[Rfam]
RNA sequence: CGAAUCCUGCCCGGCAAAGGAGGCCACCGGCCGGAAGCGAGUCUUGCGUGGUGCUGGGGUAACCCGGGCUGCGAAGCGUAGACAGCGAGUGGGCGGGCCGCGUUAUUGAGCCCCGAAAGGAACUUGUCGCGAGAGCUGACGCCGUCGAAACAGCGGAAGGCCGCAUCGGGAGAUUGAACGGGCCUGCUCUCCCGGUCUCGCCGGGGUCGAAGAGCG
Numbered sequence: 001c002g003a004a005u006c007c008u009g010c011c012c013g014g015c016a017a018a019g020g021a022g023g024c025c026a027c028c029g030g031c032c033g034g035a036a037g038c039g040a041g042u043c044u045u046g047c048g049u050g051g052u053g054c055u056g057g058g059g060u061a062a063c064c065c066g067g068g069c070u071g072c073g074a075a076g077c078g079u080a081g082a083c084a085g086c087g088a089g090u091g092g093g094c095g096g097g098c099c100g101c102g103u104u105a106u107u108g109a110g111c112c113c114c115g116a117a118a119g120g121a122a123c124u125u126g127u128c129g130c131g132a133g134a135g136c137u138g139a140c141g142c143c144g145u146c147g148a149a150a151c152a153g154c155g156g157a158a159g160g161c162c163g164c165a166u167c168g169g170g171a172g173a174u175u176g177a178a179c180g181g182g183c184c185u186g187c188u189c190u191c192c193c194g195g196u197c198u199c200g201c202c203g204g205g206g207u208c209g210a211a212g213a214g215c216g
Stems, first nucleotide, its partner, number of pairs: 011034005019028002021185004037086002041083004045078002047073005054067005107210001108208001110207006129201006135161003140155003166195008175186001
This 216-nucleotide RNA from Allostigmatella aurantiaca belongs to the Rfam family "Group II catalytic intron D1-D4-6". From the family's description: Group II introns are found in rRNA, tRNA and mRNA of organelles in fungi, plants and protists, and also in mRNA in bacteria. The literature on the family includes a 2001 paper in EMBO J by Chu et al., "Control of branch-site choice by a group II intron".